RNA: mir-551 microRNA precursor family
RNA sequence: AGGCCUCAGAAAUCAAGGGUGGGUGAGGCCUAUGAUAUACAAGGAAGGCGACCCAUACUUGGUUUCCUAGGACU
Dot-bracket structure: .(.(((..((((((.((...((((...((((..............)))).))))...)).))))))..))).).